[Rfam]
RNA sequence: UUCUGGCGGGUCUUGGCACUGGAAGAAUUCACAGAUGUGCGGUUGUGUGUAAUCGUGGAUCUUGCAAUGCCAUUACCCGCUGG
Numbered sequence: 001u002u003c004u005g006g007c008g009g010g011u012c013u014u015g016g017c018a019c020u021g022g023a024a025g026a027a028u029u030c031a032c033a034g035a036u037g038u039g040c041g042g043u044u045g046u047g048u049g050u051a052a053u054c055g056u057g058g059a060u061c062u063u064g065c066a067a068u069g070c071c072a073u074u075a076c077c078c079g080c081u082g083g
Base pairs, nucleotide, nucleotide: 003083004082005081006080007079008078009077010076014072015071016070017069018068020066021065023062025061026060029058030057031056032055034053
RNA: mir-263 microRNA precursor family
Organism: Nasonia giraulti